This 59-nucleotide sequence from Pseudomonas saudiphocaensis belongs to the Rfam family "terC RNA". NCBI's taxonomy places the organism under Bacteria, Pseudomonadati, Pseudomonadota, Pseudomonadaceae, Pseudomonas.
RNA sequence: ACGUGACGCCGGGCCCCUCUGGCGGUAAGCAGUGCUUAUCGUGAUGUCGGAGUCACUAA
Numbered sequence: 001a002c003g004u005g006a007c008g009c010c011g012g013g014c015c016c017c018u019c020u021g022g023c024g025g026u027a028a029g030c031a032g033u034g035c036u037u038a039u040c041g042u043g044a045u046g047u048c049g050g051a052g053u054c055a056c057u058a059a
Stems, first nucleotide, its partner, number of pairs: 006053002009050004022042008
Dot-bracket structure: .....((.((((.........((((((((.....))))))))....)))).))......